The family of this 65-nucleotide sequence is "L2-Alphaproteobacteria ribosomal protein leader". A reference for the family is Eckert and Weinberg (2020), "Discovery of 20 novel ribosomal leader candidates in bacteria and archaea", BMC Microbiol.
RNA sequence: GGGCACCUACGGGGGCCUAUAACAUCAGGGUCCGCAAGGGCCCGCCAAGCAAACGGAAGAAGCUA
Numbered sequence: 001g002g003g004c005a006c007c008u009a010c011g012g013g014g015g016c017c018u019a020u021a022a023c024a025u026c027a028g029g030g031u032c033c034g035c036a037a038g039g040g041c042c043c044g045c046c047a048a049g050c051a052a053a054c055g056g057a058a059g060a061a062g063c064u065a
Stems, first nucleotide, its partner, number of pairs: 001018004006014003028043006